[Rfam]
RNA sequence: CAUAGUGGAACUUCUACUAAAACCGUCCACGUCCUGUGGACAACGUAGAAGUCAGCACAACACGCGCA
Numbered sequence: 001c002a003u004a005g006u007g008g009a010a011c012u013u014c015u016a017c018u019a020a021a022a023c024c025g026u027c028c029a030c031g032u033c034c035u036g037u038g039g040a041c042a043a044c045g046u047a048g049a050a051g052u053c054a055g056c057a058c059a060a061c062a063c064g065c066g067c068a
Stems, first nucleotide, its partner, number of pairs: 011051007026040005055067002058064001
RNA: Bacillaceae-1 RNA